[Rfam]
RNA sequence: UAGUAGAUGCACCCUGAUGGAUAACCCCCAACCAAUUCUGGCUGGGGUUUUUUUUU
Numbered sequence: 001u002a003g004u005a006g007a008u009g010c011a012c013c014c015u016g017a018u019g020g021a022u023a024a025c026c027c028c029c030a031a032c033c034a035a036u037u038c039u040g041g042c043u044g045g046g047g048u049u050u051u052u053u054u055u056u
Stems, first nucleotide, its partner, number of pairs: 003012002026047005032041003
The record is a 56-nucleotide RNA from Kamptonema sp. PCC 6506, which matches "Nitrogen stress-induced RNA 1" in Rfam.
On this family, see Ionescu et al., J Mol Biol 2010: "Heterocyst-specific transcription of NsiR1, a non-coding RNA encoded in a tandem array of direct repeats in cyanobacteria".
The family's RNA type in Rfam is small RNA.